[Rfam]
RNA: Transposase-1 RNA
RNA sequence: UUCAGAGAUUGCCUCUGUCAUUACCUACAUUAAGUAUGCAAUGGGAAUGCAAUCGUUGA
Numbered sequence: 001u002u003c004a005g006a007g008a009u010u011g012c013c014u015c016u017g018u019c020a021u022u023a024c025c026u027a028c029a030u031u032a033a034g035u036a037u038g039c040a041a042u043g044g045g046a047a048u049g050c051a052a053u054c055g056u057u058g059a
Stems, first nucleotide, its partner, number of pairs: 007054006018044004025034002